t44 RNA: an 86-nucleotide sequence from Oceanimonas sp. GK1. Taxonomically the source falls in Oceanimonas (Bacteria, Pseudomonadati, Pseudomonadota, Aeromonadaceae). This family consists of a number of bacterial RNA genes of between 135 and 170 bases in length.
RNA sequence: CAUUCACUUUAUUUAACACACACACACAUCGGCACAUGCUCCAGGGUGCCUGCGGGUCGGAGUCAUGGGAUGUGUGGAGGCCUAAC
Numbered sequence: 001c002a003u004u005c006a007c008u009u010u011a012u013u014u015a016a017c018a019c020a021c022a023c024a025c026a027c028a029u030c031g032g033c034a035c036a037u038g039c040u041c042c043a044g045g046g047u048g049c050c051u052g053c054g055g056g057u058c059g060g061a062g063u064c065a066u067g068g069g070a071u072g073u074g075u076g077g078a079g080g081c082c083u084a085a086c
Stems, first nucleotide, its partner, number of pairs: 023076008035067004040061003048057003